The family of this 85-nucleotide sequence from Salix koriyanagi is "Small nucleolar RNA Z159/U59". NCBI's taxonomy places the organism under Eukaryota, Streptophyta, Gunneridae, Salicaceae, Salix. Pairs were carried over by alignment from the consensus structure, which was predicted with PFOLD. On this family, see Chen et al., Nucleic Acids Res 2003: "The high diversity of snoRNAs in plants: identification and comparative study of 120 snoRNA genes from Oryza sativa".
[Rfam]
RNA sequence: GCCUCUUAUGAUGAUUAACAUUAUACUUUCGUUCUUCCGAGUUGCUCCGUGCGGAAAUAUUUUUGGAGACCUGAACUGAAGAGGC
Numbered sequence: 001g002c003c004u005c006u007u008a009u010g011a012u013g014a015u016u017a018a019c020a021u022u023a024u025a026c027u028u029u030c031g032u033u034c035u036u037c038c039g040a041g042u043u044g045c046u047c048c049g050u051g052c053g054g055a056a057a058u059a060u061u062u063u064u065g066g067a068g069a070c071c072u073g074a075a076c077u078g079a080a081g082a083g084g085c
Stems, first nucleotide, its partner, number of pairs: 003083004